[Rfam]
Nucleotides: 067
Base pairs, nucleotide, nucleotide: 001018002017003016004015006014007013008012027044028043029042030041031040032039033038
Number, partner (000 for none) and nucleotide at each position: 001018g002017g003016g004015g005000a006014c007013c008012u009000c010000u011000g012008g013007g014006g015004c016003c017002c018001u019000a020000u021000a022000a023000a024000c025000c026000a027044g028043c029042g030041a031040u032039c033038u034000u035000a036000a037000u038033g039032g040031g041030u042029c043028g044027c045000g046000c047000u048000a049000a050000g051000c052000a053000a054000a055000c056000g057000g058000a059000a060000g061000a062000c063000a064000g065000a066000a067000a
This 67-nucleotide RNA sequence belongs to the Rfam family "L2-Alphaproteobacteria ribosomal protein leader". It is one of the family's seed sequences. The literature on the family includes a 2020 paper in BMC Microbiol by Eckert and Weinberg, "Discovery of 20 novel ribosomal leader candidates in bacteria and archaea".